[Rfam]
RNA sequence: AAAAAAGCAGGGUCUUGUUGCCUCUUUUGAACUUGGCUCUCGUAACCUUCAGGGAAAUUAUGUUCAUUGUUAUUGGGUGAACCUCUGUAGUUAAUAGUUACUGAAGGUUCAGUAAAUGAUGGAACAUUU
Numbered sequence: 001a002a003a004a005a006a007g008c009a010g011g012g013u014c015u016u017g018u019u020g021c022c023u024c025u026u027u028u029g030a031a032c033u034u035g036g037c038u039c040u041c042g043u044a045a046c047c048u049u050c051a052g053g054g055a056a057a058u059u060a061u062g063u064u065c066a067u068u069g070u071u072a073u074u075g076g077g078u079g080a081a082c083c084u085c086u087g088u089a090g091u092u093a094a095u096a097g098u099u100a101c102u103g104a105a106g107g108u109u110c111a112g113u114a115a116a117u118g119a120u121g122g123a124a125c126a127u128u129u
Stems, first nucleotide, its partner, number of pairs: 005049003011038002014035001017032001063123009078111007
The record is a 129-nucleotide sequence from Jatropha curcas, which matches "Small nucleolar RNA snoR74" in Rfam. For this family Rfam cites "Experimental RNomics: identification of 140 candidates for small non-messenger RNAs in the plant Arabidopsis thaliana" (Marker et al., Curr Biol, 2002). Rfam 15.1 lists 1,404 matches to the family in 223 species. The source organism's lineage runs through Eukaryota, Euphyllophyta, Mesangiospermae, Malpighiales and Jatropha. Gene Ontology terms of the family: RNA processing and nucleolus. Pairs were carried over by alignment from the consensus structure, which was predicted with WAR. By type it is an H/ACA-box small nucleolar RNA.